[Rfam]
RNA sequence: GGACUGCGAUGACGUGAAAGGUUGCCAAAACAAUGCUUUGGGAAAUUUUCACUGAGAAUGUCCGUUCAAGAAUCGGGCGACAG
Numbered sequence: 001g002g003a004c005u006g007c008g009a010u011g012a013c014g015u016g017a018a019a020g021g022u023u024g025c026c027a028a029a030a031c032a033a034u035g036c037u038u039u040g041g042g043a044a045a046u047u048u049u050c051a052c053u054g055a056g057a058a059u060g061u062c063c064g065u066u067c068a069a070g071a072a073u074c075g076g077g078c079g080a081c082a083g
Stems, first nucleotide, its partner, number of pairs: 014052003018049004025041005059082004064078004

S10-Clostridia ribosomal protein leader: an 83-nucleotide RNA sequence from Crassaminicella thermophila. Taxonomically the source falls in Crassaminicella (Bacteria, Clostridia, Eubacteriales, Clostridiaceae). By type it is a cis-regulatory leader. On this family, see Eckert and Weinberg, BMC Microbiol 2020: "Discovery of 20 novel ribosomal leader candidates in bacteria and archaea".